A member of the RNA family "Xanthine riboswitch aptamer (NMT1 RNA)" from Acinetobacter populi, 70 nucleotides long.
[Rfam]
RNA sequence: AUAACGAGUAUAAGCGUUCAACAUUCAGAUGAUGUCUUGGAUCAUUUGAAUGUGGGUCAUUGCUCCAUUG
Numbered sequence: 001a002u003a004a005c006g007a008g009u010a011u012a013a014g015c016g017u018u019c020a021a022c023a024u025u026c027a028g029a030u031g032a033u034g035u036c037u038u039g040g041a042u043c044a045u046u047u048g049a050a051u052g053u054g055g056g057u058c059a060u061u062g063c064u065c066c067a068u069u070g
Stems, first nucleotide, its partner, number of pairs: 006065005015055001019056001021053013
On this family, see Yu and Breaker, RNA 2020: "A bacterial riboswitch class senses xanthine and uric acid to regulate genes associated with purine oxidation".